[Rfam]
RNA sequence: CCCCGGACUUGCGUCCGGGGCUUUCGCCUGCCGUCGCUUCGCGGCU
Numbered sequence: 001c002c003c004c005g006g007a008c009u010u011g012c013g014u015c016c017g018g019g020g021c022u023u024u025c026g027c028c029u030g031c032c033g034u035c036g037c038u039u040c041g042c043g044g045c046u
Base pairs, nucleotide, nucleotide: 001020002019003018004017005016006015007014008013033045034044035043036042037041